[Rfam]
RNA sequence: AGCUCGUAGUUUGAUUUGUGUUCCGAGCAGUCGGUACGCCGUUCGUCGGCGGUCAACUGACUCGCGGCGGAACGUCCUGCCGGUUGACGGAGCGAGUCGUCGCCGCCUCGAGUGGUCGGAGGGAAGAGCGCCCGAUCUUCGGAUCGUGGCGCGCUUCGCGUCCGACGACGUUUCUGCGUCCGUCAGUCUUAGAAAAUCCCGUCGCGGCGCUCUUAACCGAGUGACGCGCCGGGCCGGCACGUUUACUUUGAACAAAACUGAGUGCUUAAAGCAGGCCGAACCCCAGCGCCUGAAAGUCGGAUGCAUGGAAUAAUGGAAUAGGGCCUCGGUUCUAUUUUGUUGGUUUUCGGAAUUUCCGAGGCAAUGAUUAAUGGGGACAGGCGGGGGCAUUAGUAUUGCGGCGUUAGAGGUGAAAUUCUUGGAUCGUCGCAAGACUAACCUAAGCGAAAGCAUUUGCCAAGGAUGUUUUCCUUAAUCAAGAACGAAAGUUGGAGGUUCGAAGGCGAUCAGAUACCGCCCUAGUUCUUACCGUAAACUAU
Numbered sequence: 001a002g003c004u005c006g007u008a009g010u011u012u013g014a015u016u017u018g019u020g021u022u023c024c025g026a027g028c029a030g031u032c033g034g035u036a037c038g039c040c041g042u043u044c045g046u047c048g049g050c051g052g053u054c055a056a057c058u059g060a061c062u063c064g065c066g067g068c069g070g071a072a073c074g075u076c077c078u079g080c081c082g083g084u085u086g087a088c089g090g091a092g093c094g095a096g097u098c099g100u101c102g103c104c105g106c107c108u109c110g111a112g113u114g115g116u117c118g119g120a121g122g123g124a125a126g127a128g129c130g131c132c133c134g135a136u137c138u139u140c141g142g143a144u145c146g147u148g149g150c151g152c153g154c155u156u157c158g159c160g161u162c163c164g165a166c167g168a169c170g171u172u173u174c175u176g177c178g179u180c181c182g183u184c185a186g187u188c189u190u191a192g193a194a195a196a197u198c199c200c201g202u203c204g205c206g207g208c209g210c211u212c213u214u215a216a217c218c219g220a221g222u223g224a225c226g227c228g229c230c231g232g233g234c235c236g237g238c239a240c241g242u243u244u245a246c247u248u249u250g251a252a253c254a255a256a257a258c259u260g261a262g263u264g265c266u267u268a269a270a271g272c273a274g275g276c277c278g279a280a281c282c283c284c285a286g287c288g289c290c291u292g293a294a295a296g297u298c299g300g301a302u303g304c305a306u307g308g309a310a311u312a313a314u315g316g317a318a319u320a321g322g323g324c325c326u327c328g329g330u331u332c333u334a335u336u337u338u339g340u341u342g343g344u345u346u347u348c349g350g351a352a353u354u355u356c357c358g359a360g361g362c363a364a365u366g367a368u369u370a371a372u373g374g375g376g377a378c379a380g381g382c383g384g385g386g387g388c389a390u391u392a393g394u395a396u397u398g399c400g401g402c403g404u405u406a407g408a409g410g411u412g413a414a415a416u417u418c419u420u421g422g423a424u425c426g427u428c429g430c431a432a433g434a435c436u437a438a439c440c441u442a443a444g445c446g447a448a449a450g451c452a453u454u455u456g457c458c459a460a461g462g463a464u465g466u467u468u469u470c471c472u473u474a475a476u477c478a479a480g481a482a483c484g485a486a487a488g489u490u491g492g493a494g495g496u497u498c499g500a501a502g503g504c505g506a507u508c509a510g511a512u513a514c515c516g517c518c519c520u521a522g523u524u525c526u527u528a529c530c531g532u533a534a535a536c537u538a539u
Base pairs, nucleotide, nucleotide: 002483004481005480009476010475011474374470375469376468377467378465379464382461386458387457388456389455392436393435396432397431398430399429400428401427402426403425407418408417409416441452444451445450488529489528491526492525493524498522502518503517504516505515